[Rfam]
RNA sequence: GCACUGAAAGUGAGAGUUGGAGGAAAACAAACAGAUGGCCAACUAUUUGUGGUCACCGAUCAGCUUGUUUUCCUCCAAUAUCUCACCUUCGGUUG
Numbered sequence: 001g002c003a004c005u006g007a008a009a010g011u012g013a014g015a016g017u018u019g020g021a022g023g024a025a026a027a028c029a030a031a032c033a034g035a036u037g038g039c040c041a042a043c044u045a046u047u048u049g050u051g052g053u054c055a056c057c058g059a060u061c062a063g064c065u066u067g068u069u070u071u072c073c074u075c076c077a078a079u080a081u082c083u084c085a086c087c088u089u090c091g092g093u094u095g
Stems, first nucleotide, its partner, number of pairs: 004092005011085004016079006023072008032063001
RNA: MIR2275 microRNA precursor family